[Rfam]
The family of this 176-nucleotide RNA sequence from Klebsiella pneumoniae is "sok antitoxin (CssrC)". Also identified in Shigella as CssrC. Taxonomically the source falls in Klebsiella pneumoniae (Bacteria, Gammaproteobacteria, Enterobacterales, Enterobacteriaceae). By type it is an antitoxin RNA. A reference for the family is Kawano et al. (2007), "An antisense RNA controls synthesis of an SOS-induced toxin evolved from an antitoxin", Mol Microbiol.
RNA sequence: CGGCGCUUGAGGCUUUUUGCCUCAUGAUGUUUGAGUGUUUUGAUGUUGUGAGGCAGAAAGAAGAAAGCCCCGUAGGACGUUAAUUUUCAUUAACCAACCACACGAGGCCAUCUGCUUGACUAGACACCAACAGAGUAGCCUCUUAGCUGCCGUAAGGCAAGGAGAAAAAGGCUAUG
Numbered sequence: 001c002g003g004c005g006c007u008u009g010a011g012g013c014u015u016u017u018u019g020c021c022u023c024a025u026g027a028u029g030u031u032u033g034a035g036u037g038u039u040u041u042g043a044u045g046u047u048g049u050g051a052g053g054c055a056g057a058a059a060g061a062a063g064a065a066a067g068c069c070c071c072g073u074a075g076g077a078c079g080u081u082a083a084u085u086u087u088c089a090u091u092a093a094c095c096a097a098c099c100a101c102a103c104g105a106g107g108c109c110a111u112c113u114g115c116u117u118g119a120c121u122a123g124a125c126a127c128c129a130a131c132a133g134a135g136u137a138g139c140c141u142c143u144u145a146g147c148u149g150c151c152g153u154a155a156g157g158c159a160a161g162g163a164g165a166a167a168a169a170g171g172c173u174a175u176g
Stems, first nucleotide, its partner, number of pairs: 002070002005068004013060011026047006072103002076098001079095001081093001104142005112135002116130003147170002